[Rfam]
RNA: mir-19 microRNA precursor family
RNA sequence: GUUCUCUACCAGUUUUGCAUGGUUGCACCACAAGAAGAAAUUAGUUGUGCAAAUCUAUGCAAAACUGAUGGUGGAC
Numbered sequence: 001g002u003u004c005u006c007u008a009c010c011a012g013u014u015u016u017g018c019a020u021g022g023u024u025g026c027a028c029c030a031c032a033a034g035a036a037g038a039a040a041u042u043a044g045u046u047g048u049g050c051a052a053a054u055c056u057a058u059g060c061a062a063a064a065c066u067g068a069u070g071g072u073g074g075a076c
Stems, first nucleotide, its partner, number of pairs: 003074002006071003010067010021055001023052006030045002